[Rfam]
RNA: pemK RNA
RNA sequence: AUAAUGAUACACCUUGAGAUUAGCCAGCACGCAGUGGUGGAGGUGAAAUACCUGUGA
Number, nucleotide and partner (000 for none) at each position: 001a000002u000003a000004a000005u000006g000007a000008u000009a000010c000011a000012c054013c023014u022015u000016g000017a000018g000019a000020u000021u000022a014023g013024c040025c039026a038027g000028c036029a035030c034031g000032c000033a000034g030035u029036g028037g000038u026039g025040g024041a053042g052043g051044u000045g000046a000047a000048a000049u000050a000051c043052c042053u041054g012055u000056g000057a000